[Rfam]
The family of this 135-nucleotide sequence from Nannospalax galili is "Small nucleolar RNA SNORA5". Clan: SNORA5 clan. Taxonomically the source falls in Nannospalax (Eukaryota, Chordata, Eutheria, Euarchontoglires). Its family is annotated with nucleolus and RNA processing in the Gene Ontology. It is annotated as an H/ACA-box small nucleolar RNA. A search with the family's covariance model found it, with a score of 124 bits. About the family: ACA5 is a member of the H/ACA class of snoRNA that guide the sites of modification of uridines to pseudouridines.

RNA sequence: UGCAGUCAUGUCAAAUUCAGCGCCUACCAUACAGAUGGCAGGUUUCUGGCCCAAAAGGCUGCCAUAGAAAUACUGUGACUCAUGGACUCUGUACCCCUUACCUAGGCUCAGGGAUAAAUUUGGUCACAGACAUCA
Number, nucleotide and partner (000 for none) at each position: 001u000002g062003c061004a060005g059006u000007c000008a000009u000010g000011u000012c000013a000014a000015a000016u000017u000018c048019a047020g046021c000022g043023c042024c041025u040026a000027c038028c037029a000030u000031a000032c000033a000034g000035a000036u000037g028038g027039c000040a025041g024042g023043u022044u000045u000046c020047u019048g018049g000050c000051c000052c000053a000054a000055a000056a000057g000058g000059c005060u004061g003062c002063c000064a000065u000066a000067g000068a000069a000070a000071u000072a000073c000074u000075g127076u126077g125078a124079c123080u122081c000082a000083u000084g000085g000086a000087c113088u112089c111090u110091g109092u000093a000094c000095c000096c000097c000098u000099u000100a000101c000102c000103u000104a000105g000106g000107c000108u000109c091110a090111g089112g088113g087114a000115u000116a000117a000118a000119u000120u000121u000122g080123g079124u078125c077126a076127c075128a000129g000130a000131c000132a000133u000134c000135a000